A member of the RNA family "mir-7398 microRNA precursor family" from Phascolarctos cinereus, 59 nucleotides long. It scores 59 bits against the family's covariance model.
RNA sequence: UGUGUAGAGGAGGAUGAGGAUACCGUGCAAUGUCGGGUAACCUUCCCUUCUCUCACAGU
Numbered sequence: 001u002g003u004g005u006a007g008a009g010g011a012g013g014a015u016g017a018g019g020a021u022a023c024c025g026u027g028c029a030a031u032g033u034c035g036g037g038u039a040a041c042c043u044u045c046c047c048u049u050c051u052c053u054c055a056c057a058g059u
Stems, first nucleotide, its partner, number of pairs: 002056003006053006013047001016044003022038003
Pairs were carried over by alignment from the consensus structure, which was predicted with RNAalifold. The organism belongs to Phascolarctos, within Eukaryota. Gene Ontology terms of the family: miRNA-mediated post-transcriptional gene silencing and RISC complex.